[Rfam]
Small nucleolar RNA Z105: a 74-nucleotide sequence from Olea europaea.

Nucleotides: 074
Stems, first nucleotide, its partner, number of pairs: 006069004029050002
Number, partner (000 for none) and nucleotide at each position: 001000g002000c003000a004000u005000a006069a007068u008067g009066a010000u011000g012000a013000a014000g015000a016000a017000a018000g019000u020000a021000a022000a023000u024000g025000a026000u027000u028000c029050u030049g031000a032000a033000u034000u035000u036000u037000u038000g039000u040000u041000g042000a043000u044000u045000g046000a047000a048000u049030u050029a051000u052000u053000a054000c055000g056000a057000c058000c059000u060000u061000c062000c063000u064000a065000c066009u067008c068007a069006u070000u071000c072000u073000g074000a

Annotation
The organism belongs to Olea europaea, within Eukaryota. The family's RNA type in Rfam is C/D-box small nucleolar RNA. Gene Ontology terms of the family: nucleolus and RNA processing. The base pairs follow the family's consensus structure, which was predicted with CMfinder. The match comes from Rfam's covariance-model search (46 bits).